[Rfam]
RNA: Small nucleolar RNA SNORD103/SNORD85
RNA sequence: UCUAGCCAUGAUGAUGCUCUUGCCCUCACUGAGAACUGCAAUGAGUUCUGUAAUGAGAGCUUUUAAAAGUACUCAUUUAUUCUGAGCCAGA
Numbered sequence: 001u002c003u004a005g006c007c008a009u010g011a012u013g014a015u016g017c018u019c020u021u022g023c024c025c026u027c028a029c030u031g032a033g034a035a036c037u038g039c040a041a042u043g044a045g046u047u048c049u050g051u052a053a054u055g056a057g058a059g060c061u062u063u064u065a066a067a068a069g070u071a072c073u074c075a076u077u078u079a080u081u082c083u084g085a086g087c088c089a090g091a
Stems, first nucleotide, its partner, number of pairs: 001091003005087002